The family of this 101-nucleotide sequence from Propylenella binzhouense is "TPP riboswitch aptamer (THI element)". The organism belongs to Propylenella, within Bacteria.
Nucleotides: 101
Base pairs, nucleotide, nucleotide: 007088008087009086011051012050013049014048016045017037018036019035020034021033022032023031024030056081057080058079062075063074064073065072
Number, partner (000 for none) and nucleotide at each position: 001000u002000g003000c004000g005000c006000a007088g008087g009086c010000c011051c012050g013049g014048g015000g016045u017037g018036c019035u020034c021033g022032u023031c024030c025000g026000a027000u028000c029000u030024g031023g032022g033021c034020g035019g036018g037017c038000u039000g040000a041000g042000a043000u044000g045016a046000g047000a048014c049013c050012c051011g052000u053000c054000g055000a056081c057080u058079u059000g060000a061000u062075c063074u064073g065072g066000g067000u068000a069000a070000u071000g072065c073064c074063a075062g076000c077000g078000a079058a080057a081056g082000g083000a084000a085000c086009g087008c088007c089000g090000c091000g092000u093000u094000g095000a096000u097000c098000g099000a100000c101000g